Rfam assigns this 91-nucleotide RNA from Ricinus communis to the family "MIR535 microRNA precursor family". It is one of the family's seed sequences. Gene Ontology terms of the family: RISC complex and miRNA-mediated post-transcriptional gene silencing. The source organism's lineage runs through Eukaryota, Embryophyta, Pentapetalae, fabids and Ricinus.

RNA sequence: UUUGUUGACAACGAGAGAGAGCACGCUUGUUAGCCUUCAUGUAAGGAACAUGGUUGCACACCAGCGUGCUCCCUAUCGUUGUCAAUGAGAU
Numbered sequence: 001u002u003u004g005u006u007g008a009c010a011a012c013g014a015g016a017g018a019g020a021g022c023a024c025g026c027u028u029g030u031u032a033g034c035c036u037u038c039a040u041g042u043a044a045g046g047a048a049c050a051u052g053g054u055u056g057c058a059c060a061c062c063a064g065c066g067u068g069c070u071c072c073c074u075a076u077c078g079u080u081g082u083c084a085a086u087g088a089g090a091u
Stems, first nucleotide, its partner, number of pairs: 006084005012078002016074002019071001021069007029061002